[Rfam]
This 102-nucleotide sequence from Mesobacillus boroniphilus belongs to the Rfam family "Purine riboswitch aptamer". Its family is annotated with purine nucleobase biosynthetic process in the Gene Ontology. It scores 88 bits against the family's covariance model. Rfam's curators write: Riboswitches are metabolite binding domains within certain messenger RNAs that serve as precision sensors for their corresponding targets.

RNA sequence: UUAAAUCCAUAAUCUUUUCCUUGUAUAUGUUCGAGAAUAUGGCUCGGACGUUUCUACCAUGCUACCGUAAAAAGCGUGACUACAAGGGACUUUGAUAUUUGC
Numbered sequence: 001u002u003a004a005a006u007c008c009a010u011a012a013u014c015u016u017u018u019c020c021u022u023g024u025a026u027a028u029g030u031u032c033g034a035g036a037a038u039a040u041g042g043c044u045c046g047g048a049c050g051u052u053u054c055u056a057c058c059a060u061g062c063u064a065c066c067g068u069a070a071a072a073a074g075c076g077u078g079a080c081u082a083c084a085a086g087g088g089a090c091u092u093u094g095a096u097a098u099u100u101g102c
Base pairs, nucleotide, nucleotide: 018088019087020086021085022084023083024082025081029049030048031047032046033045034044035043058078059077060076061075062074063073